[Rfam]
RNA sequence: CCUUGGAGUAAAGUAGCAGCACAUAAUGGUUUGUGGAAUAUAAGAAGGUGCAGGCCAUAUUGUGCUGCCUCAUAAAUACAAGG
Numbered sequence: 001c002c003u004u005g006g007a008g009u010a011a012a013g014u015a016g017c018a019g020c021a022c023a024u025a026a027u028g029g030u031u032u033g034u035g036g037a038a039u040a041u042a043a044g045a046a047g048g049u050g051c052a053g054g055c056c057a058u059a060u061u062g063u064g065c066u067g068c069c070u071c072a073u074a075a076a077u078a079c080a081a082g083g
Base pairs, nucleotide, nucleotide: 001083002082003081004080005079013071016068017067018066019065020064021063022062023061026058027057028056029055030054031053032052033051034050035049
The record is an 83-nucleotide RNA sequence from Geotrypetes seraphini, which matches "mir-15 microRNA precursor family" in Rfam. The family's consensus secondary structure was predicted with RNAalifold. Taxonomically the source falls in Geotrypetes (Eukaryota, Opisthokonta, Chordata, Sarcopterygii). Clan: mir-15 clan. Its family is annotated with miRNA-mediated post-transcriptional gene silencing and RISC complex in the Gene Ontology.